[Rfam]
Rfam assigns this 400-nucleotide RNA from Hyphomicrobium sulfonivorans to the family "Alphaproteobacteria transfer-messenger RNA". Its family is annotated with RNA catabolic process in the Gene Ontology. Rfam's curators write: Bacterial tmRNA, also known as 10Sa RNA or SsrA, is named for its dual tRNA and mRNA-like properties. Pairs were carried over by alignment from the consensus structure, which is taken from published work.
RNA sequence: AGGCUUUUUUUCUGGCGCGUCUGGCUCUAUAUUCACAAUGCUGGAUUCGUCCAGCUAUGGCGAUAAACGCGGUCGAAAUAAGCCGUUCGGACCCGGGGGCGGUACCCGGCGCCUCCACCAAUUUCUCCCUGCCGCACUGUGCGACCGUCUCCCGCAAGGGAAAAUGGCCGCUAUCGGCAGGGAACCAUGGGGGCGAACUAGGAUCGACGAAGGUGUAAAGGGCUUAGCUUUUGCUCGGCAUGGUUCCGCCGUUAUCGGGCCGUUCAGAAUAGUUGCAAAUGACAACUAUGCUGAGGCUGCUCUCGCUGCGUAAUGCGGCGCGAAAUGCCUAAACUAAGUCCUUGCCCUUAGCCGGGUAAGGCGCGGUCCGGAGGGCACCGGGCAACAGAAGCCCUCCAUU
Numbered sequence: 001a002g003g004c005u006u007u008u009u010u011u012c013u014g015g016c017g018c019g020u021c022u023g024g025c026u027c028u029a030u031a032u033u034c035a036c037a038a039u040g041c042u043g044g045a046u047u048c049g050u051c052c053a054g055c056u057a058u059g060g061c062g063a064u065a066a067a068c069g070c071g072g073u074c075g076a077a078a079u080a081a082g083c084c085g086u087u088c089g090g091a092c093c094c095g096g097g098g099g100c101g102g103u104a105c106c107c108g109g110c111g112c113c114u115c116c117a118c119c120a121a122u123u124u125c126u127c128c129c130u131g132c133c134g135c136a137c138u139g140u141g142c143g144a145c146c147g148u149c150u151c152c153c154g155c156a157a158g159g160g161a162a163a164a165u166g167g168c169c170g171c172u173a174u175c176g177g178c179a180g181g182g183a184a185c186c187a188u189g190g191g192g193g194c195g196a197a198c199u200a201g202g203a204u205c206g207a208c209g210a211a212g213g214u215g216u217a218a219a220g221g222g223c224u225u226a227g228c229u230u231u232u233g234c235u236c237g238g239c240a241u242g243g244u245u246c247c248g249c250c251g252u253u254a255u256c257g258g259g260c261c262g263u264u265c266a267g268a269a270u271a272g273u274u275g276c277a278a279a280u281g282a283c284a285a286c287u288a289u290g291c292u293g294a295g296g297c298u299g300c301u302c303u304c305g306c307u308g309c310g311u312a313a314u315g316c317g318g319c320g321c322g323a324a325a326u327g328c329c330u331a332a333a334c335u336a337a338g339u340c341c342u343u344g345c346c347c348u349u350a351g352c353c354g355g356g357u358a359a360g361g362c363g364c365g366g367u368c369c370g371g372a373g374g375g376c377a378c379c380g381g382g383c384a385a386c387a388g389a390a391g392c393c394c395u396c397c398a399u400u
Base pairs, nucleotide, nucleotide: 040055041054042053043052044051059235060234061233062232063231069228070227071224072223073222074221083213084212087210088209089208093109094108095107096106097105110195111194112193113192114191115190116189236251237250238249239248241262242261243260245259246258247257364380365379366378367377370397371396372395373394374393375392